[Rfam]
About this RNA
drum RNA: a 110-nucleotide RNA sequence from bacterium 0.1xD8-71. A search with the family's covariance model found it, with a score of 62 bits. It is annotated as a small RNA. Firmicutes, Bacteroidetes (1 example), Proteobacteria (2 examples), Spirochaetes (2 examples).
RNA sequence: GGCUGAUGAAAUGUACGCCGUGAUGGGAAGCGGUUUACAUGGAGGUCUAUAAGGGUAUGAGGAUUUACCAAAGCCCAUCUUAGGUUACAAACCGAAAGAAAGUCCUUACU
Numbered sequence: 001g002g003c004u005g006a007u008g009a010a011a012u013g014u015a016c017g018c019c020g021u022g023a024u025g026g027g028a029a030g031c032g033g034u035u036u037a038c039a040u041g042g043a044g045g046u047c048u049a050u051a052a053g054g055g056u057a058u059g060a061g062g063a064u065u066u067a068c069c070a071a072a073g074c075c076c077a078u079c080u081u082a083g084g085u086u087a088c089a090a091a092c093c094g095a096a097a098g099a100a101a102g103u104c105c106u107u108a109c110u
Stems, first nucleotide, its partner, number of pairs: 001047004011040005017034005023078004061105003083093004